[Rfam]
RNA: mir-290 microRNA precursor family
Organism: Neotoma lepida
RNA sequence: GUGGUCAUCAAAGUGGAGGCCCUCUCUGAGCCAGAAUUUAGAAAGUGCUUCCACUUUGUGUGCCAC
Numbered sequence: 001g002u003g004g005u006c007a008u009c010a011a012a013g014u015g016g017a018g019g020c021c022c023u024c025u026c027u028g029a030g031c032c033a034g035a036a037u038u039u040a041g042a043a044a045g046u047g048c049u050u051c052c053a054c055u056u057u058g059u060g061u062g063c064c065a066c
Stems, first nucleotide, its partner, number of pairs: 004063002009058012022045002025042003
Dot-bracket structure: ...((...((((((((((((.((.(((............))).)).))))))))))))...))...